[Rfam]
RNA sequence: AAAUGUAGUAGACUAUAAGUAUACAUGACAUUUGAAGUAUACUAAGUAUACUACGUUUAC
Numbered sequence: 001a002a003a004u005g006u007a008g009u010a011g012a013c014u015a016u017a018a019g020u021a022u023a024c025a026u027g028a029c030a031u032u033u034g035a036a037g038u039a040u041a042c043u044a045a046g047u048a049u050a051c052u053a054c055g056u057u058u059a060c
Stems, first nucleotide, its partner, number of pairs: 001058009012047003018043007